The family of this 556-nucleotide part of an RNA from Trichonephila clavata is "Eukaryotic small subunit ribosomal RNA". The base pairs follow the family's consensus structure, which is taken from published work. A search with the family's covariance model found it, with a score of 1493 bits.

RNA sequence: AAUUGUUGCAGUUAAAAAGCUCGUAGUCGGACCUCUGCUCCGGACGCCGGGGGCCGCUCGCGCGGUCUCCCGCUGCGCUUCCGGGCAUUCUGCCCGCCACCUCGCGGGGUGAUUUUAAAAGGUCGUCCCCGGGUGGAAGGCGGUGAUCGCUUUGCAAAAAUUAGAGUGCUCAGAGCAGGCCCUGCCGCCUGGAUAGUAAUGCACGGAACGAUGGAAGACGCCCUCGGUCCCGGGUUUCCGUGGGAACAGGUCGACGGAGACCGAGGGAAUGAUCGAUAGGAGCAGACGGGGGCAUCCGUAUUCCGACGCUAGAGGUGAAAUUCUUGGACCGUCGGAAGACGACCCACUGCGAAGGCAUUUGCCAAGAAUGCUUCCAUUGACCAAGAACGAAAGUCAGAGGCUCAAAGAAGAUUAGAUACCUUUGUAGUUCUGACCGUAAACGAUACCCUCCAGCGAUCCGGCUGCGUACGAACGUGACGCGCCGGGCAGCUUGCCCGGGAAACCUGAGUUCAGGCUCCGGGGGAAGUAUGGUUGCAAAGCUGGAACUUAAAGGAAU
Numbered sequence: 001a002a003u004u005g006u007u008g009c010a011g012u013u014a015a016a017a018a019g020c021u022c023g024u025a026g027u028c029g030g031a032c033c034u035c036u037g038c039u040c041c042g043g044a045c046g047c048c049g050g051g052g053g054c055c056g057c058u059c060g061c062g063c064g065g066u067c068u069c070c071c072g073c074u075g076c077g078c079u080u081c082c083g084g085g086c087a088u089u090c091u092g093c094c095c096g097c098c099a100c101c102u103c104g105c106g107g108g109g110u111g112a113u114u115u116u117a118a119a120a121g122g123u124c125g126u127c128c129c130c131g132g133g134u135g136g137a138a139g140g141c142g143g144u145g146a147u148c149g150c151u152u153u154g155c156a157a158a159a160a161u162u163a164g165a166g167u168g169c170u171c172a173g174a175g176c177a178g179g180c181c182c183u184g185c186c187g188c189c190u191g192g193a194u195a196g197u198a199a200u201g202c203a204c205g206g207a208a209c210g211a212u213g214g215a216a217g218a219c220g221c222c223c224u225c226g227g228u229c230c231c232g233g234g235u236u237u238c239c240g241u242g243g244g245a246a247c248a249g250g251u252c253g254a255c256g257g258a259g260a261c262c263g264a265g266g267g268a269a270u271g272a273u274c275g276a277u278a279g280g281a282g283c284a285g286a287c288g289g290g291g292g293c294a295u296c297c298g299u300a301u302u303c304c305g306a307c308g309c310u311a312g313a314g315g316u317g318a319a320a321u322u323c324u325u326g327g328a329c330c331g332u333c334g335g336a337a338g339a340c341g342a343c344c345c346a347c348u349g350c351g352a353a354g355g356c357a358u359u360u361g362c363c364a365a366g367a368a369u370g371c372u373u374c375c376a377u378u379g380a381c382c383a384a385g386a387a388c389g390a391a392a393g394u395c396a397g398a399g400g401c402u403c404a405a406a407g408a409a410g411a412u413u414a415g416a417u418a419c420c421u422u423u424g425u426a427g428u429u430c431u432g433a434c435c436g437u438a439a440a441c442g443a444u445a446c447c448c449u450c451c452a453g454c455g456a457u458c459c460g461g462c463u464g465c466g467u468a469c470g471a472a473c474g475u476g477a478c479g480c481g482c483c484g485g486g487c488a489g490c491u492u493g494c495c496c497g498g499g500a501a502a503c504c505u506g507a508g509u510u511c512a513g514g515c516u517c518c519g520g521g522g523g524a525a526g527u528a529u530g531g532u533u534g535c536a537a538a539g540c541u542g543g544a545a546c547u548u549a550a551a552g553g554a555a556u
Base pairs, nucleotide, nucleotide: 009519011517017516019388021386022385026381027380028379279375280374281373282372283370284369287366291363292362293361294360297341298340301337302336303335304334305333306332307331308330312323313322314321349356350355393434394433395432396431397430398429403427407423408422409421410420446514447513448508449507450506452491453490454489457486458485459484460483461482462481466478467477497504498503521548522547523546530541531540532539533538